[Rfam]
RNA: Small nucleolar RNA SNORD35
RNA sequence: GGCAAAUGAUGUCUGUUUUCAGUGUUCUUUAGAUGUCUGCCACAGGCACUCUAACAUAGCAGACUGGUAAAGCUGAUGCCAGGAG
Numbered sequence: 001g002g003c004a005a006a007u008g009a010u011g012u013c014u015g016u017u018u019u020c021a022g023u024g025u026u027c028u029u030u031a032g033a034u035g036u037c038u039g040c041c042a043c044a045g046g047c048a049c050u051c052u053a054a055c056a057u058a059g060c061a062g063a064c065u066g067g068u069a070a071a072g073c074u075g076a077u078g079c080c081a082g083g084a085g
Base pairs, nucleotide, nucleotide: 001080002079003078004077